[Rfam]
RNA sequence: AGGCAUGAUAGAGGCGCGGUUUUCAUCAGUAGCCCUUUAGGGGUGCGCGGAAACGCACAGGGCGAAAGGGACAGCCGCCGAAGGGCCUGCCGGGGUUUCCGUCCCGCAGGUGCCUGGGGUGCAGGAGAACAUCCUGCGCACUGCCGCUUGACGGAGAGCUAUCAUGACC
Numbered sequence: 001a002g003g004c005a006u007g008a009u010a011g012a013g014g015c016g017c018g019g020u021u022u023u024c025a026u027c028a029g030u031a032g033c034c035c036u037u038u039a040g041g042g043g044u045g046c047g048c049g050g051a052a053a054c055g056c057a058c059a060g061g062g063c064g065a066a067a068g069g070g071a072c073a074g075c076c077g078c079c080g081a082a083g084g085g086c087c088u089g090c091c092g093g094g095g096u097u098u099c100c101g102u103c104c105c106g107c108a109g110g111u112g113c114c115u116g117g118g119g120u121g122c123a124g125g126a127g128a129a130c131a132u133c134c135u136g137c138g139c140a141c142u143g144c145c146g147c148u149u150g151a152c153g154g155a156g157a158g159c160u161a162u163c164a165u166g167a168c169c
Base pairs, nucleotide, nucleotide: 006164007163008162009161010160011159016078017077018076019075020074021073023071024070032063033062034061035060036059038057082115083114084113085111086110087109088108089107090106092104093103094102116142117141119139120138121137122136123135124134125133126132144154145153146152
Rfam assigns this 169-nucleotide RNA sequence from Slackia heliotrinireducens to the family "Lysine riboswitch aptamer". It scores 81 bits against the family's covariance model.